[Rfam]
RNA sequence: AAUUGCAAGUUUGAGCCCAAAGCAGAACUGUGCAUGGUGCAGCCCUGUCAGAUUCCAGUGAAUCUGUGAAUUCUGCU
Numbered sequence: 001a002a003u004u005g006c007a008a009g010u011u012u013g014a015g016c017c018c019a020a021a022g023c024a025g026a027a028c029u030g031u032g033c034a035u036g037g038u039g040c041a042g043c044c045c046u047g048u049c050a051g052a053u054u055c056c057a058g059u060g061a062a063u064c065u066g067u068g069a070a071u072u073c074u075g076c077u
Base pairs, nucleotide, nucleotide: 013045015043017042021077022076023075024074025073026072027071029039030038049066050065051064052063053062054061055060